[Rfam]
RNA sequence: CACCGAGUCCGAGGUCCGGUGAUCACCGGACCUGGUGCGAAAGGGA
Numbered sequence: 001c002a003c004c005g006a007g008u009c010c011g012a013g014g015u016c017c018g019g020u021g022a023u024c025a026c027c028g029g030a031c032c033u034g035g036u037g038c039g040a041a042a043g044g045g046a
Stems, first nucleotide, its partner, number of pairs: 013032007
RNA: raiA-hairpin RNA